Rfam assigns this 377-nucleotide sequence from Corynebacterium alimapuense to the family "transfer-messenger RNA". The organism belongs to Corynebacterium, within Bacteria. The family is grouped with related families in Rfam's "tRNA clan". For this family Rfam cites "Phylogenetic analysis of tmRNA secondary structure" (Williams and Bartel, RNA, 1996). The family's consensus secondary structure is taken from published work.
[Rfam]
RNA sequence: GGGGCUGAUUUGGUUUCGACUUCGUAGAUUGAGCCAGGGGAAGCGUGCCGGUGCAGGCUGAGGACCACCGUGAGCGUCGCAGCAAAAUUAUAAGCGCCGAGAACACUCAGCGCGACUACGCCCUCGCUGCCUAAGUAGCGACCGCGUGUCUGUCAGACCGGGCUUGCCUCUGGCCCGGACCCUGGCACCGACUAAGAGGAUUGCUGUUCGUCCGCGUCUGCGGGGUCGAAUGGGACUUUUACCGCUGACUGGGCCCAUCAUCCGGGAAUGUGUUCGUCAGAGCCGGAGGGUCGAGUAGAGAUCGCAUACGAACUGCGCACGGAGAAGCCCUGGCGAGGUGACGAAGGACCCGGGUUCAAUUCCCGGCAGCUCCACUG
Dot-bracket structure: (((((((............((((((.(.(...(((((((....((((((((((...[[[[.[...))))).......].]]]]........................................(((((((....))))))).........((((((.(((((((..[[[.[)))))))...))))))........]]]]....(((((((.(...[..[[....).)))))))............]]..].[[[[[.[[.........[..((((((..]....]].]]]]]...............))))))...)))))......)))))))..).).))))))...(((((.......))))))))))))....